The family of this 69-nucleotide sequence is "pemK RNA". Pairs were carried over by alignment from the consensus structure, which is taken from published work.
RNA sequence: UUAAAGAUACUUCCGUCACGAGAGAUCGGGCGGCCUGCGGAGAUCCCGGGGGUGGUGAGAUUCCAAUGA
Numbered sequence: 001u002u003a004a005a006g007a008u009a010c011u012u013c014c015g016u017c018a019c020g021a022g023a024g025a026u027c028g029g030g031c032g033g034c035c036u037g038c039g040g041a042g043a044u045c046c047c048g049g050g051g052g053u054g055g056u057g058a059g060a061u062u063c064c065a066a067u068g069a
Base pairs, nucleotide, nucleotide: 012066013033014032015031016030034052035051036050038048039047040046053065054064055063

The sequence is in the family's curated seed alignment.